[Rfam]
A member of the RNA family "Small nucleolar RNA SNORD72" from Gasterosteus aculeatus, 79 nucleotides long. Its family is annotated with RNA processing and nucleolus in the Gene Ontology. For this family Rfam cites "RNomics: an experimental approach that identifies 201 candidates for novel, small, non-messenger RNAs in mouse" (Huttenhofer et al., EMBO J, 2001). About the family: snoRNA HBII-240 belongs to the CD family of snoRNAs. It is the human orthologue of the mouse MBII-240 and is predicted to guide 2'O-ribose methylation of the large 28S rRNA at residue U4590.

Nucleotides: 079
Stems, first nucleotide, its partner, number of pairs: 002078007
Number, partner (000 for none) and nucleotide at each position: 001000u002078g003077c004076u005075u006074a007073c008072c009000a010000a011000u012000g013000a014000u015000g016000c017000u018000g019000a020000a021000a022000a023000a024000u025000a026000a027000a028000u029000g030000u031000c032000u033000g034000a035000a036000c037000a038000a039000a040000u041000g042000a043000u044000u045000u046000c047000u048000a049000u050000a051000u052000g053000a054000u055000a056000u057000c058000a059000a060000c061000a062000u063000u064000u065000u066000c067000u068000c069000u070000g071000a072008g073007g074006u075005a076004a077003g078002c079000u